Overview: The family of this 288-nucleotide RNA sequence from Sciurus vulgaris is "Mason-Pfizer monkey virus packaging signal". Rfam's curators write: This family represents a group of sequences that are related to the Mason-Pfizer monkey virus (MPMV) packaging signal. The packaging signal is located in the 5' UTR and is required for specific RNA encapsidation. The match comes from Rfam's covariance-model search (150 bits).
[Rfam]
RNA sequence: UGGCGCCCAAGGUGUGGCUUCGGAUACGGGGGAAUUCGAGAGGGAAGAGGUGUGUAAGUGUUUGGUCGAAGAAGAAAAAAAAAAAGUGAAAGUCAGUUCAAGAAAGUUCGCCACAGGAGCCUGCAGCGCUGUUCUUAAAGGUACAGUAGCGCCUAAGUAUGGGACAAGAAUUAAGUAGGUAUAAAGUUUUUGUUAAGCAAUUGAAAGAAGCUUUAAAGACAUGGGGAUUAAAGGUUAAGAGUAAUAAUCUUUUUAAGUUUUUUGACCUUAUUAAGGAUGCCUGUCCGU
Numbered sequence: 001u002g003g004c005g006c007c008c009a010a011g012g013u014g015u016g017g018c019u020u021c022g023g024a025u026a027c028g029g030g031g032g033a034a035u036u037c038g039a040g041a042g043g044g045a046a047g048a049g050g051u052g053u054g055u056a057a058g059u060g061u062u063u064g065g066u067c068g069a070a071g072a073a074g075a076a077a078a079a080a081a082a083a084a085a086g087u088g089a090a091a092g093u094c095a096g097u098u099c100a101a102g103a104a105a106g107u108u109c110g111c112c113a114c115a116g117g118a119g120c121c122u123g124c125a126g127c128g129c130u131g132u133u134c135u136u137a138a139a140g141g142u143a144c145a146g147u148a149g150c151g152c153c154u155a156a157g158u159a160u161g162g163g164a165c166a167a168g169a170a171u172u173a174a175g176u177a178g179g180u181a182u183a184a185a186g187u188u189u190u191u192g193u194u195a196a197g198c199a200a201u202u203g204a205a206a207g208a209a210g211c212u213u214u215a216a217a218g219a220c221a222u223g224g225g226g227a228u229u230a231a232a233g234g235u236u237a238a239g240a241g242u243a244a245u246a247a248u249c250u251u252u253u254u255a256a257g258u259u260u261u262u263u264g265a266c267c268u269u270a271u272u273a274a275g276g277a278u279g280c281c282u283g284u285c286c287g288u
Stems, first nucleotide, its partner, number of pairs: 006032003012027003037050001093141002097138002109131001112128001114126001116124001147167001149165001152163004172215003175211002222264006229257001232250006273288001275286004
Dot-bracket structure: .....(((...(((..........)))..)))....(............)..........................................((..((..........(..(.(.(.......).).)..).....)).)).....(.(..((((....)))).).)....(((((.................................)).)))......((((((.(..((((((.......))))))......).))))))........(.((((....)))).)